[Rfam]
RNA: che1 RNA
RNA sequence: GGGACAGGGGGGGUCUCCACCACACCCGGCGGAGCCUGUCCUCCAGGUUGCGCGAACGCGUGGCCCAGUGGUUGUCGCUCGGGGGUGAUCGCCG
Numbered sequence: 001g002g003g004a005c006a007g008g009g010g011g012g013g014u015c016u017c018c019a020c021c022a023c024a025c026c027c028g029g030c031g032g033a034g035c036c037u038g039u040c041c042u043c044c045a046g047g048u049u050g051c052g053c054g055a056a057c058g059c060g061u062g063g064c065c066c067a068g069u070g071g072u073u074g075u076c077g078c079u080c081g082g083g084g085g086u087g088a089u090c091g092c093c094g
Base pairs, nucleotide, nucleotide: 001042002041003040004039005038006037007036008035015034016033017032018031020029021028046065047064048063049062050061051060052059053058